Rfam assigns this 129-nucleotide RNA from Sciurus carolinensis to the family "Small nucleolar RNA SNORA11".
Taxonomically the source falls in Sciurus (Eukaryota, Deuterostomia, Rodentia, Sciurini).
Rfam's curators write: U107 (SNORA11) is a member of the H/ACA class of snoRNAs that guide the sites of modification of uridines to pseudouridines. This snoRNA was identified by RT-PCR from blood cells and its expression confirmed by Northern blot analysis. There is no predicted target for this guide snRNA.
Rfam classes the family as an H/ACA-box small nucleolar RNA.
Pairs were carried over by alignment from the consensus structure, which was predicted with RNAalifold.
A search with the family's covariance model found it, with a score of 122 bits.
Gene Ontology terms of the family: nucleolus and RNA processing.
RNA sequence: GGGGUGUGCUCAGAGCAGGGGGCCCGAAGAGUGGCUCCCCUGUUUACAACGCACCCAACAGGAAUCUGGGGCUAUGGUGAUGAGAGGCACAACCCUUGUGGCCUCCCCGUGAGCCUACGCCCUGCCCUA
Numbered sequence: 001g002g003g004g005u006g007u008g009c010u011c012a013g014a015g016c017a018g019g020g021g022g023c024c025c026g027a028a029g030a031g032u033g034g035c036u037c038c039c040c041u042g043u044u045u046a047c048a049a050c051g052c053a054c055c056c057a058a059c060a061g062g063a064a065u066c067u068g069g070g071g072c073u074a075u076g077g078u079g080a081u082g083a084g085a086g087g088c089a090c091a092a093c094c095c096u097u098g099u100g101g102c103c104u105c106c107c108c109g110u111g112a113g114c115c116u117a118c119g120c121c122c123u124g125c126c127c128u129a
Stems, first nucleotide, its partner, number of pairs: 002056007013045009022035003069122004076115003081111002084104001086102001088100005